A member of the RNA family "Small nucleolar RNA SNORA49" from Aotus nancymaae, 137 nucleotides long. The base pairs follow the family's consensus structure, which was predicted with RNAalifold. The snoRNA ACA49 has no identified RNA target. The source organism's lineage runs through Eukaryota, Opisthokonta, Vertebrata, Teleostomi and Aotus. Gene Ontology terms of the family: nucleolus and RNA processing.
RNA sequence: CGUCCUCAGCCUCACUCCAGGGGCUUUUUGUUGCCUAUAAAGUGCCCUGGCAUUGCCUGAGGAUAGAUGAGAAAGCACAUAUCCCUCCCCAGUAAGAAGCUGUUUUCUUUUUUUUUUUUUUUUUUUGAGCGGAGUUU
Dot-bracket structure: ..(((((((.(.....(((((((((((...........))))).))))))....).)))))))...........((.((...........((.((((........))))))..............)).)).......